[Rfam]
RNA: Nitrogen stress-induced RNA 1
RNA sequence: UGGUAGAUGCACCCUGGUUAAGCCCUGGAGAUAACUCUGGGGCAUUUUUUA
Number, nucleotide and partner (000 for none) at each position: 001u000002g013003g012004u011005a000006g000007a000008u000009g000010c000011a004012c003013c002014c000015u000016g000017g000018u000019u000020a000021a000022g043023c042024c041025c040026u039027g038028g037029a036030g035031a000032u000033a000034a000035c030036u029037c028038u027039g026040g025041g024042g023043c022044a000045u000046u000047u000048u000049u000050u000051a000